[Rfam]
This 77-nucleotide RNA from Prosthecodimorpha hirschii belongs to the Rfam family "Makes More Granules Regulator RNA (mmgR)". Lineage of the source: Bacteria > Pseudomonadati > Pseudomonadota > Hyphomicrobiales > Prosthecodimorpha. Its family is annotated with DNA-templated transcription, termination, response to nitrogen compound and protein binding in the Gene Ontology. A search with the family's covariance model found it, with a score of 72 bits. Its Rfam clan is "suhB sRNA clan".

RNA sequence: UGCCGCAGCCCUCCUUGGGCGUUUCCUCCCUAGACUUGGGCCGCUGACACGUGUCAGCGGCCUUUUUCUUUGUCGCG
Dot-bracket structure: .......((((.....))))..................(((((((((......)))))))))...............